[Rfam]
RNA sequence: AGCUCGAUCGGGUCCACGGCCCUGGUCACCACGAGGUAGUCACGCAGCGCCAUGCCGUGCCGGUUCUC
Numbered sequence: 001a002g003c004u005c006g007a008u009c010g011g012g013u014c015c016a017c018g019g020c021c022c023u024g025g026u027c028a029c030c031a032c033g034a035g036g037u038a039g040u041c042a043c044g045c046a047g048c049g050c051c052a053u054g055c056c057g058u059g060c061c062g063g064u065u066c067u068c
Stems, first nucleotide, its partner, number of pairs: 004063003008059001011030003016026002035056004040052001043049002
The family of this 68-nucleotide RNA sequence from Mycobacterium antarcticum is "ASdes TB sRNA". A search with the family's covariance model found it, with a score of 65 bits. NCBI's taxonomy places the organism under Bacteria, Bacillati, Actinomycetota, Mycobacteriales, Mycobacterium.